[Rfam]
RNA: Glycine riboswitch aptamer
Organism: Mycobacteroides abscessus
RNA sequence: CGCCCGUGCGCGGGAGAGUGUCAUGACGGCCAGUCAUGACCGCCGAAGGAGCAACACCUCUCCGUCAAUCUCUCAGGCCCCCGAACCGCCUGCGGCCC
Numbered sequence: 001c002g003c004c005c006g007u008g009c010g011c012g013g014g015a016g017a018g019u020g021u022c023a024u025g026a027c028g029g030c031c032a033g034u035c036a037u038g039a040c041c042g043c044c045g046a047a048g049g050a051g052c053a054a055c056a057c058c059u060c061u062c063c064g065u066c067a068a069u070c071u072c073u074c075a076g077g078c079c080c081c082c083g084a085a086c087c088g089c090c091u092g093c094g095g096c097c098c
Stems, first nucleotide, its partner, number of pairs: 006093003010089004020040008042078003045074002049072003056065002